This 49-nucleotide RNA belongs to the Rfam family "L31-Actinobacteria ribosomal protein leader". For this family Rfam cites "Discovery of 20 novel ribosomal leader candidates in bacteria and archaea" (Eckert and Weinberg, BMC Microbiol, 2020). The family's consensus secondary structure is taken from published work. The family's RNA type in Rfam is cis-regulatory leader. It is one of the family's seed sequences.
[Rfam]
RNA sequence: CUGGCUCCGGUUCACGCCUUCCGCACCCACGCGUGGGCGACCCGGCGCA
Numbered sequence: 001c002u003g004g005c006u007c008c009g010g011u012u013c014a015c016g017c018c019u020u021c022c023g024c025a026c027c028c029a030c031g032c033g034u035g036g037g038c039g040a041c042c043c044g045g046c047g048c049a
Base pairs, nucleotide, nucleotide: 004048005047007045008044009043010042015039016038017037018036019035022033023032